RNA sequence: UCAGUUAAAGGCAAACCUAUUGAAAAAUUGGGACGCAAAGUCACGGGUCUAACGUUCUAUAUAAGGAACAACGGCGGCUGGGCUGCCUGAA
Numbered sequence: 001u002c003a004g005u006u007a008a009a010g011g012c013a014a015a016c017c018u019a020u021u022g023a024a025a026a027a028u029u030g031g032g033a034c035g036c037a038a039a040g041u042c043a044c045g046g047g048u049c050u051a052a053c054g055u056u057c058u059a060u061a062u063a064a065g066g067a068a069c070a071a072c073g074g075c076g077g078c079u080g081g082g083c084u085g086c087c088u089g090a091a
Stems, first nucleotide, its partner, number of pairs: 001091001003088002011036002016031002019028003034077001039084004044080003047075003
About this RNA:
A member of the RNA family "c-di-GMP-I-GGC riboswitch aptamer" from Litchfieldia stipae, 91 nucleotides long. The source organism's lineage runs through Bacteria, Bacillati, Bacillota, Bacilli and Litchfieldia.